Overview:
Rfam assigns this 206-nucleotide sequence from Bacillus sp. NRRL B-14911 to the family "Bacillus sRNA ncr1575". The base pairs follow the family's consensus structure, which is taken from published work. For this family Rfam cites "Identification of regulatory RNAs in Bacillus subtilis" (Irnov et al., Nucleic Acids Res, 2010). Taxonomically the source falls in Bacillus (Bacteria, Bacillota, Bacilli, Bacillaceae).
RNA sequence: CAACUAAGUGCGAAAGGAAUGAUGGGUGGACGAUGGAUAACUGAUCUUAUUUUUUCUUGAUUGAAAUAGCAUAUUUCAAUUCACACAAAAAAUAGGAUUAGUCUGCCCAUUUUUCACUUAUACAUCAUUCAGCCAUUAUGAUAAUGGUUUAUUUGCUGAUGCAAAGGUACGGCUAAUCCUUCCAAUUCAAUUGGGAGGAUUUUUUU
Numbered sequence: 001c002a003a004c005u006a007a008g009u010g011c012g013a014a015a016g017g018a019a020u021g022a023u024g025g026g027u028g029g030a031c032g033a034u035g036g037a038u039a040a041c042u043g044a045u046c047u048u049a050u051u052u053u054u055u056c057u058u059g060a061u062u063g064a065a066a067u068a069g070c071a072u073a074u075u076u077c078a079a080u081u082c083a084c085a086c087a088a089a090a091a092a093u094a095g096g097a098u099u100a101g102u103c104u105g106c107c108c109a110u111u112u113u114u115c116a117c118u119u120a121u122a123c124a125u126c127a128u129u130c131a132g133c134c135a136u137u138a139u140g141a142u143a144a145u146g147g148u149u150u151a152u153u154u155g156c157u158g159a160u161g162c163a164a165a166g167g168u169a170c171g172g173c174u175a176a177u178c179c180u181u182c183c184a185a186u187u188c189a190a191u192u193g194g195g196a197g198g199a200u201u202u203u204u205u206u
Base pairs, nucleotide, nucleotide: 016115017114018113019112023109024108025107026106029103030102031101042100043099044098045097046096047095048094049093050092051091052090053089054088059081060080061079062078063077064076065075066074067073123155124154132148133147134146135145136144137143138142175201176200177199178198179197180196181195182194183193184192185191